[Rfam]
RNA sequence: AGCUUCAACAUCCCCGUAGGUCGGGCGCAGUACGCGCAGUGGAUCUACUGAAGCC
Numbered sequence: 001a002g003c004u005u006c007a008a009c010a011u012c013c014c015c016g017u018a019g020g021u022c023g024g025g026c027g028c029a030g031u032a033c034g035c036g037c038a039g040u041g042g043a044u045c046u047a048c049u050g051a052a053g054c055c
Base pairs, nucleotide, nucleotide: 002054003053004052005051006050007049013041014039016048017047018046019045020044021043022042023040025037026036027035028034
Annotation: The family of this 55-nucleotide RNA is "nadA riboswitch". For this family Rfam cites "Structure and ligand binding of the ADP-binding domain of the NAD(+) riboswitch" (Huang et al., RNA, 2020). The family's consensus secondary structure is taken from published work. The sequence is in the family's curated seed alignment.